[Rfam]
RNA: Small nucleolar RNA SNORD79
Organism: Alligator mississippiensis
RNA sequence: UACUGUUAAUGAUGAUUUUGUUUUGAACAAUGGGAAUCUCUCUGAAAGAGACUGAGGACGACUUUGAUACUGAAACAGUA
Numbered sequence: 001u002a003c004u005g006u007u008a009a010u011g012a013u014g015a016u017u018u019u020g021u022u023u024u025g026a027a028c029a030a031u032g033g034g035a036a037u038c039u040c041u042c043u044g045a046a047a048g049a050g051a052c053u054g055a056g057g058a059c060g061a062c063u064u065u066g067a068u069a070c071u072g073a074a075a076c077a078g079u080a
Base pairs, nucleotide, nucleotide: 001080002079003078004077005076006075007074